[Rfam]
RNA: Plant signal recognition particle RNA
RNA sequence: GCCGAGCUAAGUAACUAGAGCUUGUAACCCAAGUAAGGGCAUAAAGGUGAUGGGACAGUUCUUUGACUCCCUGGUUGGAGUAGUGGCUGCUGUAAGGUUGCUUGCCCAUUCCAAGUUGAGAGUUGAGUGUUGGAGGGACUUUUUGCGAAGGCAUAGGUGUCAUCACUUAAAGACAAUGGGGCACUGCGUGAGGCUGGUUUCACAGAGCAACGAUUACCACUACCUCCCAACAGCGGAGGGAUAACAAGCUGCUGCAACCACACUCUACGAUGACCUGGUCAGCCUCAGUUGCUUGGACCUUCACCUUU
Numbered sequence: 001g002c003c004g005a006g007c008u009a010a011g012u013a014a015c016u017a018g019a020g021c022u023u024g025u026a027a028c029c030c031a032a033g034u035a036a037g038g039g040c041a042u043a044a045a046g047g048u049g050a051u052g053g054g055a056c057a058g059u060u061c062u063u064u065g066a067c068u069c070c071c072u073g074g075u076u077g078g079a080g081u082a083g084u085g086g087c088u089g090c091u092g093u094a095a096g097g098u099u100g101c102u103u104g105c106c107c108a109u110u111c112c113a114a115g116u117u118g119a120g121a122g123u124u125g126a127g128u129g130u131u132g133g134a135g136g137g138a139c140u141u142u143u144u145g146c147g148a149a150g151g152c153a154u155a156g157g158u159g160u161c162a163u164c165a166c167u168u169a170a171a172g173a174c175a176a177u178g179g180g181g182c183a184c185u186g187c188g189u190g191a192g193g194c195u196g197g198u199u200u201c202a203c204a205g206a207g208c209a210a211c212g213a214u215u216a217c218c219a220c221u222a223c224c225u226c227c228c229a230a231c232a233g234c235g236g237a238g239g240g241a242u243a244a245c246a247a248g249c250u251g252c253u254g255c256a257a258c259c260a261c262a263c264u265c266u267a268c269g270a271u272g273a274c275c276u277g278g279u280c281a282g283c284c285u286c287a288g289u290u291g292c293u294u295g296g297a298c299c300u301u302c303a304c305c306u307u308u
Base pairs, nucleotide, nucleotide: 001040002039003038004023005022006021007020008019011016028037043308044307045306046305047304048303049302050301052299053298056295057294058292059291061288062287065284070278071277073275074274075273076272077266078265079264080263081262083259085258088256089255091254092253097252098251100249101248102247103246104245106240107239109238110237111236112235115231116230117229118228120226121225122224125168126167127166128165129164135161136160138158139157140156141155144153145152146151176221179218180217187212188211189210194205195204196203